[Rfam]
RNA sequence: UGUCUCCUCCAAGUCUUCUUGAAUUGGAUUUACCCGCAAGCCGCAAGGCCUGCGGGUUUUUUU
Number, nucleotide and partner (000 for none) at each position: 001u000002g000003u000004c000005u000006c000007c000008u028009c027010c026011a025012a024013g000014u022015c021016u000017u000018c000019u000020u000021g015022a014023a000024u012025u011026g010027g009028a008029u000030u000031u000032a000033c056034c055035c054036g053037c052038a051039a000040g049041c000042c000043g000044c000045a000046a000047g000048g000049c040050c000051u038052g037053c036054g035055g034056g033057u000058u000059u000060u000061u000062u000063u000
RNA: Betaproteobacteria toxic small RNA
Organism: Paucimonas lemoignei